[Rfam]
Rfam assigns this 144-nucleotide RNA sequence from Armatimonadetes bacterium Uphvl-Ar1 to the family "c-di-AMP riboswitch aptamer (ydaO/yuaA leader)". From the family's description: This family represents a conserved RNA structure found upstream of the ydaO and yuaA genes in Bacillus subtilis and related genes in other bacteria.
RNA sequence: AAUUUUGGUACGUCGAAUUUGGGCAAUGCCCAGAACGGGGGAACCACCGCUAGGAACUAGCAGGGGUGAAGAGCGUAGGAUGCGCUCAGGUCAAUCUUGAACCUAACCCGGCAGCUAACCUCGUAGGCGCAAUCAAGACAUCAU
Number, nucleotide and partner (000 for none) at each position: 001a000002a000003u000004u000005u000006u000007g000008g000009u000010a000011c129012g128013u127014c126015g000016a000017a000018u034019u033020u032021g031022g030023g000024c000025a000026a000027u000028g000029c000030c022031c021032a020033g019034a018035a124036c123037g122038g121039g120040g119041g000042a000043a000044c000045c063046a000047c000048c000049g000050c000051u000052a000053g000054g000055a000056a000057c000058u000059a000060g000061c000062a000063g045064g109065g108066g107067u000068g000069a000070a000071g000072a086073g085074c084075g083076u000077a000078g000079g000080a000081u000082g000083c075084g074085c073086u072087c000088a000089g103090g102091u101092c000093a000094a000095u000096c000097u000098u000099g000100a000101a091102c090103c089104u000105a000106a000107c066108c065109c064110g000111g000112c000113a000114g000115c000116u000117a000118a000119c040120c039121u038122c037123g036124u035125a000126g014127g013128c012129g011130c000131a000132a000133u000134c000135a000136a000137g000138a000139c000140a000141u000142c000143a000144u000